This 168-nucleotide RNA sequence from Natranaerobius thermophilus belongs to the Rfam family "Group II catalytic intron D1-D4-3". Rfam 15.1 lists 4,274 matches to the family in 1,585 species.

RNA sequence: UCACCGGUGACGGUGGAGUCUGAAGGAAGCUGAAGGGGGAAUUUGGAACAUAGUGAGAACAAACCGAGGAUGGCCUUUUAGGUGGGUAACCUUGCAAAUUAUGGGAAAGCCCGAAAGCUGGAUAACCUAAAAGGUUAGGACGGAUGCGUUCAAAUUCAGGCAAGCAGA
Numbered sequence: 001u002c003a004c005c006g007g008u009g010a011c012g013g014u015g016g017a018g019u020c021u022g023a024a025g026g027a028a029g030c031u032g033a034a035g036g037g038g039g040a041a042u043u044u045g046g047a048a049c050a051u052a053g054u055g056a057g058a059a060c061a062a063a064c065c066g067a068g069g070a071u072g073g074c075c076u077u078u079u080a081g082g083u084g085g086g087u088a089a090c091c092u093u094g095c096a097a098a099u100u101a102u103g104g105g106a107a108a109g110c111c112c113g114a115a116a117g118c119u120g121g122a123u124a125a126c127c128u129a130a131a132a133g134g135u136u137a138g139g140a141c142g143g144a145u146g147c148g149u150u151c152a153a154a155u156u157c158a159g160g161c162a163a164g165c166a167g168a
Base pairs, nucleotide, nucleotide: 001017002016003014004013005012006011030167031166032165036161041155042154043153044152045151046150049146050145051144064143065142066141073135074134075133077131078130079129080128081127082126083125084112085111086110087109090105091104092103